[Rfam]
Nucleotides: 075
Base pairs, nucleotide, nucleotide: 002044003043004042005041006040007039008038021031022030023029024028
Number, partner (000 for none) and nucleotide at each position: 001000a002044a003043u004042g005041u006040u007039g008038a009000g010000g011000g012000g013000c014000g015000c016000u017000g018000c019000a020000a021031c022030g023029g024028g025000a026000a027000a028024c029023c030022c031021g032000u033000g034000a035000g036000g037000c038008u039007c040006a041005g042004c043003a044002u045000g046000u047000g048000g049000a050000u051000a052000u053000u054000g055000a056000u057000a058000c059000a060000a061000c062000g063000g064000c065000g066000c067000u068000c069000g070000c071000u072000c073000c074000a075000u